RNA sequence: CUGACUGAACCACUGAAUCCACACAUACGCCGACACAUUCGACCGGGUGCCCGGCGGCUGCGCAGCAAUCGGGUUGUCGGAUGCGGGCGUAUGGAGGCUCAAC
Number, nucleotide and partner (000 for none) at each position: 001c000002u000003g000004a000005c000006u000007g000008a000009a000010c000011c000012a000013c000014u000015g000016a000017a000018u000019c000020c000021a000022c000023a000024c093025a092026u091027a090028c089029g088030c087031c086032g000033a000034c000035a000036c083037a082038u081039u080040c079041g078042a077043c076044c000045g000046g000047g000048u000049g074050c073051c072052c071053g070054g000055c000056g000057g000058c000059u000060g000061c000062g000063c000064a000065g000066c000067a000068a000069u000070c053071g052072g051073g050074u049075u000076g043077u042078c041079g040080g039081a038082u037083g036084c000085g000086g031087g030088c029089g028090u027091a026092u025093g024094g000095a000096g000097g000098c000099u000100c000101a000102a000103c000
t44 RNA: a 103-nucleotide RNA from Halorhodospira halophila.
This family consists of a number of bacterial RNA genes of between 135 and 170 bases in length. The t44 gene has been identified in several species of enteric bacteria but homologs have also been identified in Pseudomonas and Coxiella species. The t44 gene is found between the map and rpsB genes in all species in the full alignment apart from Shigella flexneri. The function of this RNA is unknown.
Rfam's curators put it in the seed alignment.